[Rfam]
RNA: ALIL pseudoknot
Organism: Caballeronia novacaledonica
RNA sequence: CGCAUAUUUCGCGCAGGCGGAGCUCGACCGCCGAUCGAAGCCAUGAUCGCGUUCAUCGACGAGCAUCGCGACGUCUACGGUAUCGAGCCGAUCUGCCGCCUGCUGCCGAUCGCGCCG
Numbered sequence: 001c002g003c004a005u006a007u008u009u010c011g012c013g014c015a016g017g018c019g020g021a022g023c024u025c026g027a028c029c030g031c032c033g034a035u036c037g038a039a040g041c042c043a044u045g046a047u048c049g050c051g052u053u054c055a056u057c058g059a060c061g062a063g064c065a066u067c068g069c070g071a072c073g074u075c076u077a078c079g080g081u082a083u084c085g086a087g088c089c090g091a092u093c094u095g096c097c098g099c100c101u102g103c104u105g106c107c108g109a110u111c112g113c114g115c116c117g
Stems, first nucleotide, its partner, number of pairs: 016032005078117004089112002092109002095106002098103001